[Rfam]
RNA sequence: GGCCUAGCAGUGAUGAUGAUGACACUAAGUCACUUUCCUGAACAUGACUGAUGGUUUUAAGUCACUACCUCAUCUGAGCUGGCA
Numbered sequence: 001g002g003c004c005u006a007g008c009a010g011u012g013a014u015g016a017u018g019a020u021g022a023c024a025c026u027a028a029g030u031c032a033c034u035u036u037c038c039u040g041a042a043c044a045u046g047a048c049u050g051a052u053g054g055u056u057u058u059a060a061g062u063c064a065c066u067a068c069c070u071c072a073u074c075u076g077a078g079c080u081g082g083c084a
Stems, first nucleotide, its partner, number of pairs: 002083003006080003

A member of the RNA family "Small nucleolar RNA SNORD11B" from Melanochromis auratus, 84 nucleotides long. Its family is annotated with nucleolus and RNA processing in the Gene Ontology. It is one of the family's seed sequences. The literature on the family includes a 2006 paper in Nucleic Acids Res by Yang et al., "snoSeeker: an advanced computational package for screening of guide and orphan snoRNA genes in the human genome". Rfam classes the family as a C/D-box small nucleolar RNA.